[Rfam]
RNA sequence: UUGAGAGCCCUGGAGACUGAAUCCCUGUGUUUAUCCACAGAGCAGACAGAGCGCGGGCAGUGGCAGCUUCCCCCACGCUGCCCCCUCCCUGUGCCUGGGCGCUGACUCGGAGGAAGCACCUCUAAAGGUGAGCGGGGCCCUUCAGUCUCCACGCCCAGGCAAUCCAGGAAAGCC
Numbered sequence: 001u002u003g004a005g006a007g008c009c010c011u012g013g014a015g016a017c018u019g020a021a022u023c024c025c026u027g028u029g030u031u032u033a034u035c036c037a038c039a040g041a042g043c044a045g046a047c048a049g050a051g052c053g054c055g056g057g058c059a060g061u062g063g064c065a066g067c068u069u070c071c072c073c074c075a076c077g078c079u080g081c082c083c084c085c086u087c088c089c090u091g092u093g094c095c096u097g098g099g100c101g102c103u104g105a106c107u108c109g110g111a112g113g114a115a116g117c118a119c120c121u122c123u124a125a126a127g128g129u130g131a132g133c134g135g136g137g138c139c140c141u142u143c144a145g146u147c148u149c150c151a152c153g154c155c156c157a158g159g160c161a162a163u164c165c166a167g168g169a170a171a172g173c174c
Stems, first nucleotide, its partner, number of pairs: 002161002007155001011151011024137003030132006038104003042100001048096001051094006062082005107125001109123005
Rfam assigns this 174-nucleotide RNA sequence from Calyptomena viridis to the family "TUC338". For this family Rfam cites "Expression and functional role of a transcribed noncoding RNA with an ultraconserved element in hepatocellular carcinoma" (Braconi et al., Proc Natl Acad Sci U S A, 2011). The family's consensus secondary structure was predicted with WAR. NCBI's taxonomy places the organism under Eukaryota, Teleostomi, Amniota, Aves, Calyptomena. It is annotated as a cis-regulatory element.